[Rfam]
RNA sequence: UCUAGUGUUUUAUGGCUUUUUAUUCCUAUGUGAUAGUAAUAAAGUCUCAUGUAGGGAUGGAAGCCAUGAAAUA
Numbered sequence: 001u002c003u004a005g006u007g008u009u010u011u012a013u014g015g016c017u018u019u020u021u022a023u024u025c026c027u028a029u030g031u032g033a034u035a036g037u038a039a040u041a042a043a044g045u046c047u048c049a050u051g052u053a054g055g056g057a058u059g060g061a062a063g064c065c066a067u068g069a070a071a072u073a
Stems, first nucleotide, its partner, number of pairs: 006073014022058012
The record is a 73-nucleotide sequence, which matches "mir-135 microRNA precursor family" in Rfam. The literature on the family includes a 2002 paper in Curr Biol by Lagos-Quintana et al., "Identification of tissue-specific microRNAs from mouse". Rfam links the family to the GO terms gene silencing by miRNA and RISC complex. Pairs were carried over by alignment from the consensus structure, which was predicted with PFOLD. Rfam 15.1 lists 2,125 matches to the family in 647 species. The sequence is in the family's curated seed alignment.